[Rfam]
RNA: Xanthomonas sRNA sX9
Organism: Xanthomonas oryzae
RNA sequence: AUGUACCACGCGUCCACUGCGGUUCUGAGCGCGCCGUGCGCGCCCACCUGACAGCUGCUCGCGACGUUCUGUUCGCC
Numbered sequence: 001a002u003g004u005a006c007c008a009c010g011c012g013u014c015c016a017c018u019g020c021g022g023u024u025c026u027g028a029g030c031g032c033g034c035c036g037u038g039c040g041c042g043c044c045c046a047c048c049u050g051a052c053a054g055c056u057g058c059u060c061g062c063g064a065c066g067u068u069c070u071g072u073u074c075g076c077c
Stems, first nucleotide, its partner, number of pairs: 002016002005013002020036004025031001048075001050073005